RNA: Vault RNA
Nucleotides: 102
Base pairs, nucleotide, nucleotide: 002097003096004095005094006093007092012086013085014084015083017082018081019080020079026073027072029070
Number, partner (000 for none) and nucleotide at each position: 001000g002097c003096a004095c005094u006093g007092g008000u009000g010000u011000a012086g013085c014084u015083c016000a017082g018081u019080g020079g021000u022000u023000a024000c025000u026073u027072c028000a029070c030000u031000c032000a033000c034000c035000a036000a037000u038000u039000c040000u041000a042000u043000a044000u045000g046000a047000a048000u049000u050000c051000g052000c053000u054000g055000a056000u057000u058000c059000c060000u061000c062000c063000c064000a065000u066000u067000c068000g069000u070029g071000g072027g073026a074000u075000c076000a077000a078000a079020c080019c081018a082017c083015g084014g085013g086012u087000g088000c089000u090000g091000u092007c093006c094005a095004g096003u097002g098000u099000u100000u101000u102000g